[Rfam]
Nucleotides: 059
Base pairs, nucleotide, nucleotide: 006053007052009050010049011048012047022042023041024040025039026038027037028036029035
Number, partner (000 for none) and nucleotide at each position: 001000c002000g003000u004000g005000c006053g007052g008000g009050c010049c011048g012047g013000g014000g015000c016000c017000c018000u019000c020000u021000g022042a023041c024040g025039a026038u027037c028036g029035u030000u031000u032000g033000c034000c035029g036028c037027g038026a039025u040024c041023g042022u043000g044000a045000u046000g047012u048011c049010g050009g051000a052007c053006c054000g055000c056000a057000u058000c059000g
A member of the RNA family "terC RNA" from Sphingobium wenxiniae, 59 nucleotides long. Rfam classes the family as a cis-regulatory element. The organism belongs to Sphingobium wenxiniae, within Bacteria. A search with the family's covariance model found it, with a score of 59 bits.